RNA sequence: AAUUCUGUUCGUAAGAAGAAAGAGAAGCAGAUCUAUUCUAUACUCGAUAAGUGCCAAUAUUAACUAUGAUU
Numbered sequence: 001a002a003u004u005c006u007g008u009u010c011g012u013a014a015g016a017a018g019a020a021a022g023a024g025a026a027g028c029a030g031a032u033c034u035a036u037u038c039u040a041u042a043c044u045c046g047a048u049a050a051g052u053g054c055c056a057a058u059a060u061u062a063a064c065u066a067u068g069a070u071u
Base pairs, nucleotide, nucleotide: 003022004021006019008017009016010015044069045068051060052059053058
Rfam assigns this 71-nucleotide RNA sequence from Oryza meyeriana to the family "Plastid-clpP 5UTR RNA". It scores 62 bits against the family's covariance model. Pairs were carried over by alignment from the consensus structure, which was predicted with LocARNA. Rfam describes the family as follows. Plastid clpP is a non-coding RNA (ncRNA) recognised in plastids. It was found in the prime untranslated region (5UTR) of a protease complex subunit (clpP) in plastids, suggesting a posible cis-regulatory function. The source organism's lineage runs through Eukaryota, Streptophytina, Euphyllophyta, Mesangiospermae and Oryza meyeriana.